[Rfam]
RNA sequence: GAUUGAAAAAGGCAAACCAACCGCAAGUUUGGGACGCAAAGCCAUGGGUCUUAAGCGUGAGUUCUUUAUACGUAAAGAUUGCCAGGUUGCCGAA
Numbered sequence: 001g002a003u004u005g006a007a008a009a010a011g012g013c014a015a016a017c018c019a020a021c022c023g024c025a026a027g028u029u030u031g032g033g034a035c036g037c038a039a040a041g042c043c044a045u046g047g048g049u050c051u052u053a054a055g056c057g058u059g060a061g062u063u064c065u066u067u068a069u070a071c072g073u074a075a076a077g078a079u080u081g082c083c084a085g086g087u088u089g090c091c092g093a094a
Stems, first nucleotide, its partner, number of pairs: 012037002017032004022027001040088004045084003048079003055073004
RNA: c-di-GMP-I riboswitch aptamer